[Rfam]
RNA sequence: AAGAGUGUGGUGAUGAGGCAAUUUUCGUGGACUAGAGUUUCUGAUCUGGGUCUUACCCAGAAGUUGAUUACGAAACCCUUGGCUGUCUGAGCACACUU
Numbered sequence: 001a002a003g004a005g006u007g008u009g010g011u012g013a014u015g016a017g018g019c020a021a022u023u024u025u026c027g028u029g030g031a032c033u034a035g036a037g038u039u040u041c042u043g044a045u046c047u048g049g050g051u052c053u054u055a056c057c058c059a060g061a062a063g064u065u066g067a068u069u070a071c072g073a074a075a076c077c078c079u080u081g082g083c084u085g086u087c088u089g090a091g092c093a094c095a096c097u098u
Stems, first nucleotide, its partner, number of pairs: 001098003005094004040067002045062001046060005
Small nucleolar RNA Z157/R69/R10: a 98-nucleotide sequence from Morus notabilis. The family's RNA type in Rfam is C/D-box small nucleolar RNA. The source organism's lineage runs through Eukaryota, Streptophytina, Embryophyta, Moreae and Morus. Gene Ontology terms of the family: nucleolus and RNA processing. The family's consensus secondary structure was predicted with PFOLD. Clan: SNORD52 clan. The literature on the family includes a 2003 paper in Nucleic Acids Res by Chen et al., "The high diversity of snoRNAs in plants: identification and comparative study of 120 snoRNA genes from Oryza sativa".